[Rfam]
RNA sequence: ACAGGCACUAGAGGCAUUGCAUGUGUGACUCCUAUGUCACAUGUGUAUCAGUAGGUGGCAGAGAGGAGACAGACUUUGUCUAUGCUCAGUGUUCUGCCCUACCAACAUCUGAGUGGUUCCCUGGCCUU
Numbered sequence: 001a002c003a004g005g006c007a008c009u010a011g012a013g014g015c016a017u018u019g020c021a022u023g024u025g026u027g028a029c030u031c032c033u034a035u036g037u038c039a040c041a042u043g044u045g046u047a048u049c050a051g052u053a054g055g056u057g058g059c060a061g062a063g064a065g066g067a068g069a070c071a072g073a074c075u076u077u078g079u080c081u082a083u084g085c086u087c088a089g090u091g092u093u094c095u096g097c098c099c100u101a102c103c104a105a106c107a108u109c110u111g112a113g114u115g116g117u118u119c120c121c122u123g124g125c126c127u128u
Stems, first nucleotide, its partner, number of pairs: 002061001004059001006057001008054003013049002019046004024041006071127002074124002083115002086112004090107004
RNA: Small nucleolar RNA SNORA17